[Rfam]
c-di-GMP-I riboswitch aptamer: a 98-nucleotide RNA from Paenibacillus radicis.

RNA sequence: ACAUGAUAAUAGCAAACCAGCCGAAAGGUUGGGACGCAAAGUCAGGAGUCUAAGGCAUUACACGGCUGCGUGUAUGCGAUGAUCGUCCGACUGCCAUG
Numbered sequence: 001a002c003a004u005g006a007u008a009a010u011a012g013c014a015a016a017c018c019a020g021c022c023g024a025a026a027g028g029u030u031g032g033g034a035c036g037c038a039a040a041g042u043c044a045g046g047a048g049u050c051u052a053a054g055g056c057a058u059u060a061c062a063c064g065g066c067u068g069c070g071u072g073u074a075u076g077c078g079a080u081g082a083u084c085g086u087c088c089g090a091c092u093g094c095c096a097u098g
Base pairs, nucleotide, nucleotide: 012037013036017032018031019030020029021028022027040092041091042090043089045088046087047086048083049082050081055077056076057075058074
Pairs were carried over by alignment from the consensus structure, which is taken from published work. The organism belongs to Paenibacillus, within Bacteria. A search with the family's covariance model found it, with a score of 72 bits. GEMM was predicted in a large-scale screen for bacterial structured RNA regulatory elements.